[Rfam]
RNA sequence: CAACAGAGUGCGUGUACGGACUCUGUCCGAAGUGGAGUAGCUGGUGUACUUCCCCGACAUCAGAACCCAUUUCGGGCAGGGCCCUAUACGCACUUAAUUUGUCC
Numbered sequence: 001c002a003a004c005a006g007a008g009u010g011c012g013u014g015u016a017c018g019g020a021c022u023c024u025g026u027c028c029g030a031a032g033u034g035g036a037g038u039a040g041c042u043g044g045u046g047u048a049c050u051u052c053c054c055c056g057a058c059a060u061c062a063g064a065a066c067c068c069a070u071u072u073c074g075g076g077c078a079g080g081g082c083c084c085u086a087u088a089c090g091c092a093c094u095u096a097a098u099u100u101g102u103c104c
Stems, first nucleotide, its partner, number of pairs: 010091007018084002021081015038064001041063007
RNA: mraW RNA